[Rfam]
RNA sequence: CCAUCCGAGGAGCGUUGCAGCGCACCCCCGACCCCCCGGUCGGCGCGGUUCGUGAGGCUCGGACAUCCAUGCAACGACGCUCAUCCACU
Dot-bracket structure: ...(((((............((.(((....................))).))......)))))..........................